[Rfam]
Record summary:
The record is an 80-nucleotide RNA sequence from Acrobeloides nanus, which matches "SmY spliceosomal RNA" in Rfam. It is annotated as a spliceosomal small nuclear RNA.
RNA sequence: AAAAGUGUCGAGACGCGUCCAGGGCCUUCUCAUCAAGACCCCUAGACAAAUUUUUUGGGUCUUUUCUUAUGAAAAGAUUU
Numbered sequence: 001a002a003a004a005g006u007g008u009c010g011a012g013a014c015g016c017g018u019c020c021a022g023g024g025c026c027u028u029c030u031c032a033u034c035a036a037g038a039c040c041c042c043u044a045g046a047c048a049a050a051u052u053u054u055u056u057g058g059g060u061c062u063u064u065u066c067u068u069a070u071g072a073a074a075a076g077a078u079u080u
Base pairs, nucleotide, nucleotide: 022041023040024039026037027036028035058079059078060077061076062075063074064073065072066071
Description:
The match comes from Rfam's covariance-model search (41 bits). The source organism's lineage runs through Eukaryota, Bilateria, Nematoda, Tylenchina and Acrobeloides. On this family, see MacMorris et al., RNA 2007: "A novel family of C. elegans snRNPs contains proteins associated with trans-splicing".